RNA sequence: GCAUUUUAACAAAUAAUCCACACGCCUGCCGACACAUUCCACGGGGUGCCGACGGAAGCUUCGAAGAGAGGUUUACUGUCGGUUCGUGGUCUGGGCAGGCGGAGGCAAAAC
Number, nucleotide and partner (000 for none) at each position: 001g000002c000003a000004u000005u000006u000007u000008a000009a000010c000011a000012a000013a000014u000015a000016a000017u000018c000019c000020a000021c000022a000023c101024g100025c099026c098027u097028g096029c095030c094031g000032a000033c000034a000035c093036a092037u000038u000039c089040c088041a087042c086043g085044g000045g000046g000047u000048g083049c082050c081051g080052a079053c078054g077055g076056a000057a000058g000059c000060u000061u000062c000063g000064a000065a000066g000067a000068g000069a000070g000071g000072u000073u000074u000075a000076c055077u054078g053079u052080c051081g050082g049083u048084u000085c043086g042087u041088g040089g039090u000091c000092u036093g035094g030095g029096c028097a027098g026099g025100c024101g023102g000103a000104g000105g000106c000107a000108a000109a000110a000111c000
Description
Shown here is a 111-nucleotide RNA from Thiomicrospira sp. WB1, a member of the family "t44 RNA". It scores 54 bits against the family's covariance model. NCBI's taxonomy places the organism under Bacteria, Pseudomonadati, Thiotrichales, Piscirickettsiaceae, Thiomicrospira.